Background
c-di-GMP-I riboswitch aptamer: a 90-nucleotide RNA sequence from Methyloversatilis sp. RAC08. A reference for the family is Weinberg et al. (2007), "Identification of 22 candidate structured RNAs in bacteria using the CMfinder comparative genomics pipeline", Nucleic Acids Res. A search with the family's covariance model found it, with a score of 58 bits. The family's consensus secondary structure is taken from published work.

RNA sequence: GCUGAACCAGGGCAAACCCACCGAAAGGUGGCGACGCAAAGUUUCCGGUCUACCGGGUGCCCAGCGCCCCACGACAGCGGGGCCGCCGCG
Number, nucleotide and partner (000 for none) at each position: 001g000002c000003u000004g000005a000006a000007c000008c000009a000010g000011g000012g037013c036014a000015a000016a000017c000018c031019c030020a029021c028022c027023g000024a000025a000026a000027g022028g021029u020030g019031g018032c000033g000034a000035c000036g013037c012038a000039a000040a000041g083042u082043u081044u000045c080046c079047g078048g075049u074050c073051u000052a000053c000054c000055g069056g068057g067058u066059g000060c000061c000062c000063a000064g000065c000066g058067c057068c056069c055070c000071a000072c000073g050074a049075c048076a000077g000078c047079g046080g045081g043082g042083c041084c000085g000086c000087c000088g000089c000090g000